[Rfam]
RNA: Bacterial small signal recognition particle RNA
Organism: Geovibrio thiophilus
RNA sequence: CGAUGGGGCCUCUGCAAUGGUUGCUGUGUGAACCCCGCCAGGCCCGGAAGGGAGCAACGGUAACAUUUGCGAUUAUGUGCCGGAGUCACCCUGUCGAGC
Numbered sequence: 001c002g003a004u005g006g007g008g009c010c011u012c013u014g015c016a017a018u019g020g021u022u023g024c025u026g027u028g029u030g031a032a033c034c035c036c037g038c039c040a041g042g043c044c045c046g047g048a049a050g051g052g053a054g055c056a057a058c059g060g061u062a063a064c065a066u067u068u069g070c071g072a073u074u075a076u077g078u079g080c081c082g083g084a085g086u087c088a089c090c091c092u093g094u095c096g097a098g099c
Stems, first nucleotide, its partner, number of pairs: 004093005010085005015077001017076006026066004035060003043052003